RNA: t44 RNA
Organism: Alteromonas sp. KUL49
RNA sequence: CAUUAAUUUUAUUUAAAACACACAUAUACCAUGACCGCGUAUCGGGGUGUUCGGCCAAGGCUGGAUCGAUACUAGGGGUAUAUGGAGGCCUAAC
Numbered sequence: 001c002a003u004u005a006a007u008u009u010u011a012u013u014u015a016a017a018a019c020a021c022a023c024a025u026a027u028a029c030c031a032u033g034a035c036c037g038c039g040u041a042u043c044g045g046g047g048u049g050u051u052c053g054g055c056c057a058a059g060g061c062u063g064g065a066u067c068g069a070u071a072c073u074a075g076g077g078g079u080a081u082a083u084g085g086a087g088g089c090c091u092a093a094c
Stems, first nucleotide, its partner, number of pairs: 023084008036075001039072006049066005